[Rfam]
RNA sequence: GUGGACGUGGUGUAGGGUUAUCACGCUUCAUUUGCAAUCAUGACUUGAAGAGGUCACGAGUUCAACUCUCGUCGUCUCCA
Numbered sequence: 001g002u003g004g005a006c007g008u009g010g011u012g013u014a015g016g017g018u019u020a021u022c023a024c025g026c027u028u029c030a031u032u033u034g035c036a037a038u039c040a041u042g043a044c045u046u047g048a049a050g051a052g053g054u055c056a057c058g059a060g061u062u063c064a065a066c067u068c069u070c071g072u073c074g075u076c077u078c079c080a
Stems, first nucleotide, its partner, number of pairs: 001079001003077005010024003026050005056072005
Dot-bracket structure: (.(((((..(((.........))).(((((...............))))).....(((((.......)))))))))).).
RNA: tRNA